[Rfam]
This 102-nucleotide RNA sequence from Halalkalibacter oceani belongs to the Rfam family "TPP riboswitch aptamer (THI element)". The family's consensus secondary structure is taken from published work. A reference for the family is Thore et al. (2006), "Structure of the eukaryotic thiamine pyrophosphate riboswitch with its regulatory ligand", Science. The match comes from Rfam's covariance-model search (64 bits). Its family is annotated with thiamine pyrophosphate binding in the Gene Ontology. Taxonomically the source falls in Halalkalibacter (Bacteria, Bacillota, Bacilli, Bacillaceae).
RNA sequence: AAACACCACUAGGGGCGCUUUGUAGCUGAGAGAGGUUCCACCUCAACCCUUACUUGACCUGACCUAGGUAAUGCUAGCGGAGGAAAGUGGCUGUUCUGACAA
Dot-bracket structure: .....(((((((((..(((....)))......((((...))))...)))).......(((...((((......))))...)))..)))))............